Rfam assigns this 73-nucleotide RNA sequence from Podarcis muralis to the family "Small nucleolar RNA SNORD19". The organism belongs to Podarcis, within Eukaryota. For this family Rfam cites "RNomics: an experimental approach that identifies 201 candidates for novel, small, non-messenger RNAs in mouse" (Huttenhofer et al., EMBO J, 2001). The family is grouped with related families in Rfam's "SNORD19 clan". Rfam 15.1 lists 1,431 matches to the family in 609 species. The base pairs follow the family's consensus structure. By type it is a C/D-box small nucleolar RNA.

RNA sequence: GAGAAAUGAGGAUAUAUGCUUUUGUCUUACAUUAUUGUGAAGACUUCAGAUCCAACUCUGAUCUCGCUCUGCA
Number, nucleotide and partner (000 for none) at each position: 001g065002a064003g063004a062005a000006a000007u000008g000009a000010g000011g000012a000013u000014a000015u000016a000017u000018g000019c000020u000021u000022u000023u000024g000025u000026c000027u000028u000029a000030c000031a000032u000033u000034a000035u000036u000037g000038u000039g000040a000041a000042g000043a000044c000045u000046u000047c000048a000049g000050a000051u000052c000053c000054a000055a000056c000057u000058c000059u000060g000061a000062u004063c003064u002065c001066g000067c000068u000069c000070u000071g000072c000073a000